[Rfam]
RNA sequence: GCCUCCUUGGUGCAGUGGUUCUUAACAGUUCAACAGUUCUCUAUCAUAAUUGUGAAAUGUUUAGGACCACUUGACCAGCG
Dot-bracket structure: .............((((((.((.((((.((((....................)))).)))).)).)))))).........
RNA: mir-203 microRNA precursor family